[Rfam]
RNA sequence: AUGAGAAAAUGAUGAGACAUGAAUAAUAUUAGGACACCUUCUGACGCAGACCGACAAUGCUGCGUAUGAGAAAAGAUAGUACUUCGUUUCUCAU
Numbered sequence: 001a002u003g004a005g006a007a008a009a010u011g012a013u014g015a016g017a018c019a020u021g022a023a024u025a026a027u028a029u030u031a032g033g034a035c036a037c038c039u040u041c042u043g044a045c046g047c048a049g050a051c052c053g054a055c056a057a058u059g060c061u062g063c064g065u066a067u068g069a070g071a072a073a074a075g076a077u078a079g080u081a082c083u084u085c086g087u088u089u090c091u092c093a094u
Stems, first nucleotide, its partner, number of pairs: 001094007042048002
Dot-bracket structure: (((((((..................................((...)).......................................)))))))
This 94-nucleotide sequence from Salvia splendens belongs to the Rfam family "Small nucleolar RNA snoR31/Z110/Z27". NCBI's taxonomy places the organism under Eukaryota, Viridiplantae, Euphyllophyta, lamiids, core Calosphace. On this family, see Barneche et al., J Mol Biol 2001: "Identification of 66 box C/D snoRNAs in Arabidopsis thaliana: extensive gene duplications generated multiple isoforms predicting new ribosomal RNA 2'-O-methylation sites". This family contains several related snoRNAs including R31, Z27 and Z110. Pairs were carried over by alignment from the consensus structure, which was predicted with PFOLD. The family has 8 seed sequences and 571 matches in Rfam 15.1. The match comes from Rfam's covariance-model search (52 bits).